[Rfam]
RNA: Alphaproteobacterial ar14
RNA sequence: CAUCUUCGGUAAAGCCAUCCUCCUCCCAGGCUGAACCGACAGACGGCCGGGACCUCCUCCUCCCAAUAUCCCGGCCAAUCAAAACGAUGCCCGCCGGACCUCCUCCCUCGGCGGGCAUUGUUU
Numbered sequence: 001c002a003u004c005u006u007c008g009g010u011a012a013a014g015c016c017a018u019c020c021u022c023c024u025c026c027c028a029g030g031c032u033g034a035a036c037c038g039a040c041a042g043a044c045g046g047c048c049g050g051g052a053c054c055u056c057c058u059c060c061u062c063c064c065a066a067u068a069u070c071c072c073g074g075c076c077a078a079u080c081a082a083a084a085c086g087a088u089g090c091c092c093g094c095c096g097g098a099c100c101u102c103c104u105c106c107c108u109c110g111g112c113g114g115g116c117a118u119u120g121u122u123u
Stems, first nucleotide, its partner, number of pairs: 007038004013032004045076008087118011